[Rfam]
RNA sequence: AUAAUGAUACUCCCGCAUAGUCGAGGUUCAUUCCCAGAGUGCGGUUCGGUGAAAUGGAUGGUGGAAUUCCAGUGA
Numbered sequence: 001a002u003a004a005u006g007a008u009a010c011u012c013c014c015g016c017a018u019a020g021u022c023g024a025g026g027u028u029c030a031u032u033c034c035c036a037g038a039g040u041g042c043g044g045u046u047c048g049g050u051g052a053a054a055u056g057g058a059u060g061g062u063g064g065a066a067u068u069c070c071a072g073u074g075a
Base pairs, nucleotide, nucleotide: 012072013044014043015042016041017040018039045058046057047056059071060070061069

The family of this 75-nucleotide sequence from Christensenella hongkongensis is "pemK RNA". By type it is a cis-regulatory element.